[Rfam]
RNA sequence: UUGCGUGACGAAGCCCGCAGCAAAGUAGACAAUAAGGGCUGAGCGUUAAGCAACACGUCAGACGCCGGGCAAUCCGGCGUUUUUUU
Numbered sequence: 001u002u003g004c005g006u007g008a009c010g011a012a013g014c015c016c017g018c019a020g021c022a023a024a025g026u027a028g029a030c031a032a033u034a035a036g037g038g039c040u041g042a043g044c045g046u047u048a049a050g051c052a053a054c055a056c057g058u059c060a061g062a063c064g065c066c067g068g069g070c071a072a073u074c075c076g077g078c079g080u081u082u083u084u085u086u
Stems, first nucleotide, its partner, number of pairs: 016057002021037001061081008
The record is an 86-nucleotide sequence from Citrobacter rodentium, which matches "sroD RNA" in Rfam. It is annotated as a small RNA. The family's consensus secondary structure was predicted with PFOLD. About the family: This family consists of a number of bacterial sroD RNA genes of around 90 bases in length. sroD is found in several Enterobacterial species but its function is unknown.